[Rfam]
RNA: Small nucleolar RNA SNORA81
Organism: Tychaedon coryphoeus
RNA sequence: ACCUUCUUGUUAAAGCACUGUGCUAAAAUUGCGGAAACCAAAGCUCAGCUUUAGUUUCUGCAAUAAUGCUAGUAGAGUAAAUGCAAGAAGAAGAAAAACUACGCACUAAAUCAAAAAGGACUAGGGUGGACCUCUUUCUUAAUGUCCAGUGUCCUGUGUCUGAAGAUUUGGUGCAACAAUU
Numbered sequence: 001a002c003c004u005u006c007u008u009g010u011u012a013a014a015g016c017a018c019u020g021u022g023c024u025a026a027a028a029u030u031g032c033g034g035a036a037a038c039c040a041a042a043g044c045u046c047a048g049c050u051u052u053a054g055u056u057u058c059u060g061c062a063a064u065a066a067u068g069c070u071a072g073u074a075g076a077g078u079a080a081a082u083g084c085a086a087g088a089a090g091a092a093g094a095a096a097a098a099c100u101a102c103g104c105a106c107u108a109a110a111u112c113a114a115a116a117a118g119g120a121c122u123a124g125g126g127u128g129g130a131c132c133u134c135u136u137u138c139u140u141a142a143u144g145u146c147c148a149g150u151g152u153c154c155u156g157u158g159u160c161u162g163a164a165g166a167u168u169u170g171g172u173g174c175a176a177c178a179a180u181u
Stems, first nucleotide, its partner, number of pairs: 018077002021074005028067004034058002037055002040052005103174008123152001125150001127148004